Notes:
Shown here is a 210-nucleotide sequence, a member of the family "permuted transfer-messenger RNA". Pairs were carried over by alignment from the consensus structure, which is taken from published work. Gene Ontology term of the family: RNA catabolic process.

[Rfam]
RNA sequence: GGGGAUAAACGCAGUCGAAUAAACCAUUCGGACCCGGGGGCGGUACCCGGCGCCUCCACCAGAACCCAUCAUCAGGUGGCUUCCGGCGGGGGCGAAAUAGGAUCGACGAGGGCGUAAAAGGCGAGCUUUCCCCCGGUAUUGUUCCGCCGUUAUCGGGCUACACGCAUAGUUGCCAACGACAACAAUGCUCGGUUUGCUAUCGCUGCUUGA
Numbered sequence: 001g002g003g004g005a006u007a008a009a010c011g012c013a014g015u016c017g018a019a020u021a022a023a024c025c026a027u028u029c030g031g032a033c034c035c036g037g038g039g040g041c042g043g044u045a046c047c048c049g050g051c052g053c054c055u056c057c058a059c060c061a062g063a064a065c066c067c068a069u070c071a072u073c074a075g076g077u078g079g080c081u082u083c084c085g086g087c088g089g090g091g092g093c094g095a096a097a098u099a100g101g102a103u104c105g106a107c108g109a110g111g112g113c114g115u116a117a118a119a120g121g122c123g124a125g126c127u128u129u130c131c132c133c134c135g136g137u138a139u140u141g142u143u144c145c146g147c148c149g150u151u152a153u154c155g156g157g158c159u160a161c162a163c164g165c166a167u168a169g170u171u172g173c174c175a176a177c178g179a180c181a182a183c184a185a186u187g188c189u190c191g192g193u194u195u196g197c198u199a200u201c202g203c204u205g206c207u208u209g210a
Stems, first nucleotide, its partner, number of pairs: 001133005015120001024112002028109003034050005051094007134149004